RNA sequence: CGUCAAGAGUCUUUGGCGCCGCUUAGGUGAGCGAAUUUCUUUUGCCUGCUAAAGGGUGAAGAAAAAUG
Number, nucleotide and partner (000 for none) at each position: 001c000002g000003u000004c000005a000006a000007g000008a000009g000010u063011c000012u061013u060014u059015g000016g000017c058018g057019c056020c055021g000022c054023u053024u052025a000026g050027g049028u000029g047030a000031g045032c044033g043034a042035a041036u000037u000038u000039c000040u000041u035042u034043u033044g032045c031046c000047u029048g000049c027050u026051a000052a024053a023054g022055g020056g019057u018058g017059a014060a013061g012062a000063a010064a000065a000066a000067u000068g000
The family of this 68-nucleotide sequence from Mycoplana azooxidifex is "S-element". The source organism's lineage runs through Bacteria, Pseudomonadati, Pseudomonadota, Rhizobiaceae and Mycoplana. The match comes from Rfam's covariance-model search (78 bits). It is annotated as a cis-regulatory element. The literature on the family includes a 2004 paper in Mol Microbiol by Venkova-Canova et al., "Two discrete elements are required for the replication of a repABC plasmid: an antisense RNA and a stem-loop structure". This family represents a group of S-elements from p42d and related plasmids.